Source information:
Nuclear RNase P: a 260-nucleotide RNA from Medioppia subpectinata. The family's consensus secondary structure is taken from published work. From the family's description: Ribonuclease P (RNase P) is a ubiquitous endoribonuclease, found in archaea, bacteria and eukarya as well as chloroplasts and mitochondria. The match comes from Rfam's covariance-model search (73 bits).
[Rfam]
RNA sequence: UGAGCUAGAAGCUUUUGCGAGGAGUUUUAAUAAUUCUUAGGAAGGUCUGAGGCGGAGAUAAAUAGGAUCUGUUGUAUCAGAUAGUGCGAAAUGCCCAGCAGUUAAAGCUGCUAUCUGUAUUAAUAGAAAGUUAGCAUUUUACGGGACUGUUUUGGGAUGAUCGUAAUUGUGCGUGGAAAUAUACAGAUGUCUCCAUAGGAAUAGUCUAAUGCAAAAGGUGAUGGUGAAUCAUAACUUAAUUCAGACUACUCUUUGGCUCU
Numbered sequence: 001u002g003a004g005c006u007a008g009a010a011g012c013u014u015u016u017g018c019g020a021g022g023a024g025u026u027u028u029a030a031u032a033a034u035u036c037u038u039a040g041g042a043a044g045g046u047c048u049g050a051g052g053c054g055g056a057g058a059u060a061a062a063u064a065g066g067a068u069c070u071g072u073u074g075u076a077u078c079a080g081a082u083a084g085u086g087c088g089a090a091a092u093g094c095c096c097a098g099c100a101g102u103u104a105a106a107g108c109u110g111c112u113a114u115c116u117g118u119a120u121u122a123a124u125a126g127a128a129a130g131u132u133a134g135c136a137u138u139u140u141a142c143g144g145g146a147c148u149g150u151u152u153u154g155g156g157a158u159g160a161u162c163g164u165a166a167u168u169g170u171g172c173g174u175g176g177a178a179a180u181a182u183a184c185a186g187a188u189g190u191c192u193c194c195a196u197a198g199g200a201a202u203a204g205u206c207u208a209a210u211g212c213a214a215a216a217g218g219u220g221a222u223g224g225u226g227a228a229u230c231a232u233a234a235c236u237u238a239a240u241u242c243a244g245a246c247u248a249c250u251c252u253u254u255g256g257c258u259c260u
Stems, first nucleotide, its partner, number of pairs: 002259003007254003012217007020038005047244005054194004084095001097112006115186006134172003218232005